[Rfam]
RNA sequence: AAACAUCCUCCUAUGUAUUGGAUCUUUGGCAGUUUUGGCUCCCAAGGCCACUUUUGACUUAGUCUUUGCUGACGUGGCACCCACAAUGAUCGACACGUGGCACCUCACUUAAGGGAUGCCACCUCAACGAAGACUAAGUCAAAAGUGAUUUUGGGGGCCAAAACUGCCAAAGAUCCAAUACAUAGGGGGUUGUUU
Numbered sequence: 001a002a003a004c005a006u007c008c009u010c011c012u013a014u015g016u017a018u019u020g021g022a023u024c025u026u027u028g029g030c031a032g033u034u035u036u037g038g039c040u041c042c043c044a045a046g047g048c049c050a051c052u053u054u055u056g057a058c059u060u061a062g063u064c065u066u067u068g069c070u071g072a073c074g075u076g077g078c079a080c081c082c083a084c085a086a087u088g089a090u091c092g093a094c095a096c097g098u099g100g101c102a103c104c105u106c107a108c109u110u111a112a113g114g115g116a117u118g119c120c121a122c123c124u125c126a127a128c129g130a131a132g133a134c135u136a137a138g139u140c141a142a143a144a145g146u147g148a149u150u151u152u153g154g155g156g157g158c159c160a161a162a163a164c165u166g167c168c169a170a171a172g173a174u175c176c177a178a179u180a181c182a183u184a185g186g187g188g189g190u191u192g193u194u195u
Base pairs, nucleotide, nucleotide: 001195002194004192005191007189008188012184013183014182015181016180017179018178019177020176021175022174023173024172025171026170027169028168029167030166031165032164033163034162035161036160037159038158039157040156041155042154043153044152045151072124075121076120077119078118079117081115082114
The record is a 195-nucleotide sequence from Medicago truncatula, which matches "MIR2619 microRNA precursor family" in Rfam. Gene Ontology terms of the family: miRNA-mediated post-transcriptional gene silencing and RISC complex.